[Rfam]
RNA sequence: GGCAAUAAACUGUCAUCGUAAUAAACCUUUCGGACCCGGGGGCAGUACCCGGCGCCUCCACCAUCUAGCCCGCCAAAGGGCCAGCCAAUGGGGGCGAAACAGGAUCGACGAGGGCGUAAAGGGUGUGCUUUUGCUCGGUGAGGUACCACCGUUAUCGGUCCAAAACUUAUAGUUGCAAAUGACAACCAUAAGGCUCCAGUCGCUCUCGCUGCGUAA
Numbered sequence: 001g002g003c004a005a006u007a008a009a010c011u012g013u014c015a016u017c018g019u020a021a022u023a024a025a026c027c028u029u030u031c032g033g034a035c036c037c038g039g040g041g042g043c044a045g046u047a048c049c050c051g052g053c054g055c056c057u058c059c060a061c062c063a064u065c066u067a068g069c070c071c072g073c074c075a076a077a078g079g080g081c082c083a084g085c086c087a088a089u090g091g092g093g094g095c096g097a098a099a100c101a102g103g104a105u106c107g108a109c110g111a112g113g114g115c116g117u118a119a120a121g122g123g124u125g126u127g128c129u130u131u132u133g134c135u136c137g138g139u140g141a142g143g144u145a146c147c148a149c150c151g152u153u154a155u156c157g158g159u160c161c162a163a164a165a166c167u168u169a170u171a172g173u174u175g176c177a178a179a180u181g182a183c184a185a186c187c188a189u190a191a192g193g194c195u196c197c198a199g200u201c202g203c204u205c206u207c208g209c210u211g212c213g214u215a216a
Stems, first nucleotide, its partner, number of pairs: 001135005014125004026114003030111003036052005053096007136151004